[Rfam]
RNA: TPP riboswitch aptamer (THI element)
Organism: Clostridium sp. CAG:307
RNA sequence: GGUGUUGCAAUGGGGAGCCAUUAGGCUGAGAGGUUAUUAAGUUAACGACCCAAGAACCUGAUCUAGGUAAUGCUAGCGUAGGUAUUGGUUACAUUAUUAUU
Numbered sequence: 001g002g003u004g005u006u007g008c009a010a011u012g013g014g015g016a017g018c019c020a021u022u023a024g025g026c027u028g029a030g031a032g033g034u035u036a037u038u039a040a041g042u043u044a045a046c047g048a049c050c051c052a053a054g055a056a057c058c059u060g061a062u063c064u065a066g067g068u069a070a071u072g073c074u075a076g077c078g079u080a081g082g083u084a085u086u087g088g089u090u091a092c093a094u095u096a097u098u099a100u101u
Base pairs, nucleotide, nucleotide: 008087009086010085011052012051013050014049017026018025019024033046034045035044036043057082058081059080060079063076064075065074066073